[Rfam]
RNA sequence: GCAGACUCACUCUGCACCCGACUGCAGCCCCAGGCGGGUGCUUUUUUCGUCUGCCAGAGAAACGUUCCAGGUGCUGUGACCGCCUGACCUGUUAAGGACGAUGCAGCCACCUGGGGAUACAUGC
Numbered sequence: 001g002c003a004g005a006c007u008c009a010c011u012c013u014g015c016a017c018c019c020g021a022c023u024g025c026a027g028c029c030c031c032a033g034g035c036g037g038g039u040g041c042u043u044u045u046u047u048c049g050u051c052u053g054c055c056a057g058a059g060a061a062a063c064g065u066u067c068c069a070g071g072u073g074c075u076g077u078g079a080c081c082g083c084c085u086g087a088c089c090u091g092u093u094a095a096g097g098a099c100g101a102u103g104c105a106g107c108c109a110c111c112u113g114g115g116g117a118u119a120c121a122u123g124c
Base pairs, nucleotide, nucleotide: 001054002053003052004051005050006049014041015040016039017038018037019036020035022033023032024031066115067114068113069112070111071110072109073107074106075105076104077103078102081100082099084097085096
About this RNA:
This 124-nucleotide RNA from Carlito syrichta belongs to the Rfam family "Small nucleolar RNA SNORA77". The family has 19 seed sequences and 843 matches in Rfam 15.1. A reference for the family is Schattner et al. (2006), "A computational screen for mammalian pseudouridylation guide H/ACA RNAs", RNA. ACA63 (SNORA77) is a member of the H/ACA class of snoRNAs that guide the sites of modification of uridines to pseudouridines. Rfam links the family to the GO terms RNA processing and nucleolus. Pairs were carried over by alignment from the consensus structure, which was predicted with RNAalifold. The source organism's lineage runs through Eukaryota, Bilateria, Deuterostomia, Euteleostomi and Carlito.